Shown here is a 38-nucleotide sequence, a member of the family "DUF805b RNA".
RNA sequence: CAGGCAGAUUCCGAAAAGCCUUUGAUAUAGAGUAGGAG
Numbered sequence: 001c002a003g004g005c006a007g008a009u010u011c012c013g014a015a016a017a018g019c020c021u022u023u024g025a026u027a028u029a030g031a032g033u034a035g036g037a038g
Stems, first nucleotide, its partner, number of pairs: 002021004010037003
The family's consensus secondary structure is taken from published work.